[Rfam]
RNA sequence: CCGUGGGCUUACGCCCACGGCUACUUCGUACCGCCGCUCCGCGGCU
Numbered sequence: 001c002c003g004u005g006g007g008c009u010u011a012c013g014c015c016c017a018c019g020g021c022u023a024c025u026u027c028g029u030a031c032c033g034c035c036g037c038u039c040c041g042c043g044g045c046u
Base pairs, nucleotide, nucleotide: 001020002019003018004017005016006015007014008013033045034044035043036042037041
Rfam assigns this 46-nucleotide RNA sequence from a Pirellulaceae bacterium to the family "Acido-Lenti-1 RNA". Rfam classes the family as a small RNA. Pairs were carried over by alignment from the consensus structure, which is taken from published work.